[Rfam]
RNA sequence: UGAGAUUUUGAGGCCAUAUUAGAAGUGCUCAUAGUGUAGCUAUGUCAGAUUCCAACAAAUCUGUGAAUUCUGCU
Numbered sequence: 001u002g003a004g005a006u007u008u009u010g011a012g013g014c015c016a017u018a019u020u021a022g023a024a025g026u027g028c029u030c031a032u033a034g035u036g037u038a039g040c041u042a043u044g045u046c047a048g049a050u051u052c053c054a055a056c057a058a059a060u061c062u063g064u065g066a067a068u069u070c071u072g073c074u
Stems, first nucleotide, its partner, number of pairs: 013040002018074001020072005025037003046063006
Rfam assigns this 74-nucleotide RNA sequence from Alligator mississippiensis to the family "Mammalian CPEB3 ribozyme". Pairs were carried over by alignment from the consensus structure, which is taken from published work. The match comes from Rfam's covariance-model search (40 bits).